c-di-GMP-I riboswitch aptamer: a 97-nucleotide RNA from Paenibacillus mucilaginosus. A search with the family's covariance model found it, with a score of 68 bits.
[Rfam]
RNA sequence: ACGCGAGAAUGGCAAACUUGAUGAAAAUCAAGGACGCAAAGUCAUGGGCCAAAAGUCUUAAACCCAUACAUAAGAUCAUGGCAGCCGGGCUGCAUUC
Numbered sequence: 001a002c003g004c005g006a007g008a009a010u011g012g013c014a015a016a017c018u019u020g021a022u023g024a025a026a027a028u029c030a031a032g033g034a035c036g037c038a039a040a041g042u043c044a045u046g047g048g049c050c051a052a053a054a055g056u057c058u059u060a061a062a063c064c065c066a067u068a069c070a071u072a073a074g075a076u077c078a079u080g081g082c083a084g085c086c087g088g089g090c091u092g093c094a095u096u097c
Base pairs, nucleotide, nucleotide: 012037013036017032018031019030020029021028022027040091041090042089043088045087046086047085048082049081050080055076056075057074058073059072060071
The source organism's lineage runs through Bacteria, Bacillota, Caryophanales, Paenibacillus and Paenibacillus mucilaginosus.